[Rfam]
RNA sequence: CCGGACCGGUGGGGUGCGGUCUCCUCCCCGCUCCGGAUCUCCUGACUCAACUUCCCCUGAGUCAGGCCAUCCGGCGCGGAGGGGGACCGGAUCCCAUGGGACACGGCAC
Numbered sequence: 001c002c003g004g005a006c007c008g009g010u011g012g013g014g015u016g017c018g019g020u021c022u023c024c025u026c027c028c029c030g031c032u033c034c035g036g037a038u039c040u041c042c043u044g045a046c047u048c049a050a051c052u053u054c055c056c057c058u059g060a061g062u063c064a065g066g067c068c069a070u071c072c073g074g075c076g077c078g079g080a081g082g083g084g085g086a087c088c089g090g091a092u093c094c095c096a097u098g099g100g101a102c103a104c105g106g107c108a109c
Stems, first nucleotide, its partner, number of pairs: 010096006018088002021085004026081001028079004033074006041066008

This 109-nucleotide RNA from Galactobacter caseinivorans belongs to the Rfam family "mraW RNA".